[Rfam]
RNA sequence: GAAAGGCCGCUCAGGAAACAGCGGCGGCUGGACACUGCCAUGAGGCGUACCGCAUCGCCGAAGUGUCCCAAUUAGU
Numbered sequence: 001g002a003a004a005g006g007c008c009g010c011u012c013a014g015g016a017a018a019c020a021g022c023g024g025c026g027g028c029u030g031g032a033c034a035c036u037g038c039c040a041u042g043a044g045g046c047g048u049a050c051c052g053c054a055u056c057g058c059c060g061a062a063g064u065g066u067c068c069c070a071a072u073u074a075g076u
Stems, first nucleotide, its partner, number of pairs: 005029007030068007
The family of this 76-nucleotide sequence is "S4-Clostridia ribosomal protein leader". For this family Rfam cites "Discovery of 20 novel ribosomal leader candidates in bacteria and archaea" (Eckert and Weinberg, BMC Microbiol, 2020). Clan: Ribosomal Protein S4 Leader clan. It is annotated as a cis-regulatory leader.